[Rfam]
RNA sequence: GCCCGGUGUUCCAUCACAACGGAUCGUCCGGCACGUUCCUGCCGGUGACGGAAAGGCUCCA
Numbered sequence: 001g002c003c004c005g006g007u008g009u010u011c012c013a014u015c016a017c018a019a020c021g022g023a024u025c026g027u028c029c030g031g032c033a034c035g036u037u038c039c040u041g042c043c044g045g046u047g048a049c050g051g052a053a054a055g056g057c058u059c060c061a
Base pairs, nucleotide, nucleotide: 010052011051012050014048015047016046028045029044030043031042032041033040
The record is a 61-nucleotide RNA sequence from Luteipulveratus halotolerans, which matches "msiK RNA" in Rfam. Pairs were carried over by alignment from the consensus structure, which is taken from published work. NCBI's taxonomy places the organism under Bacteria, Actinomycetota, Actinomycetes, Dermacoccaceae, Luteipulveratus.